[Rfam]
RNA: SAM riboswitch aptamer (S box leader)
RNA sequence: CUCUUAUCACGAGAAGCCGAGGGACUGACCCAGUGACGCUUCGGCAACCAGUGUCUACGAGAACUCGCAGGCGCCCGGUGCCAAUUUCAGAGGAUCUCAGGUCAGAUCCGAAGAUGAGAA
Numbered sequence: 001c002u003c004u005u006a007u008c009a010c011g012a013g014a015a016g017c018c019g020a021g022g023g024a025c026u027g028a029c030c031c032a033g034u035g036a037c038g039c040u041u042c043g044g045c046a047a048c049c050a051g052u053g054u055c056u057a058c059g060a061g062a063a064c065u066c067g068c069a070g071g072c073g074c075c076c077g078g079u080g081c082c083a084a085u086u087u088c089a090g091a092g093g094a095u096c097u098c099a100g101g102u103c104a105g106a107u108c109c110g111a112a113g114a115u116g117a118g119a120a
Stems, first nucleotide, its partner, number of pairs: 002119007013042005021031003025090004043082004048078002051074006086112001092109006